[Rfam]
RNA sequence: CGGUGAGGUAGAGGUUGCGGCUUUUAUGAGUAUUCUGCAGGAGAUGCGGAGAAGAUCGAGGACUGCAGAAGAAAGGAAAAGCCGCCGAAGUCCGGCUGUAGUCUCCGUGCCGCCGGGCUGGGGCUGUUUCCGAACAGGGACAGCACUGUCACGUUUACGUGCCGGGUAAACGUGGUGCGCUAUCUUCAGC
Numbered sequence: 001c002g003g004u005g006a007g008g009u010a011g012a013g014g015u016u017g018c019g020g021c022u023u024u025u026a027u028g029a030g031u032a033u034u035c036u037g038c039a040g041g042a043g044a045u046g047c048g049g050a051g052a053a054g055a056u057c058g059a060g061g062a063c064u065g066c067a068g069a070a071g072a073a074a075g076g077a078a079a080a081g082c083c084g085c086c087g088a089a090g091u092c093c094g095g096c097u098g099u100a101g102u103c104u105c106c107g108u109g110c111c112g113c114c115g116g117g118c119u120g121g122g123g124c125u126g127u128u129u130c131c132g133a134a135c136a137g138g139g140a141c142a143g144c145a146c147u148g149u150c151a152c153g154u155u156u157a158c159g160u161g162c163c164g165g166g167u168a169a170a171c172g173u174g175g176u177g178c179g180c181u182a183u184c185u186u187c188a189g190c
Stems, first nucleotide, its partner, number of pairs: 006185006017085009033070008089119008098110003120147002123144008149175009
RNA: Lysine riboswitch aptamer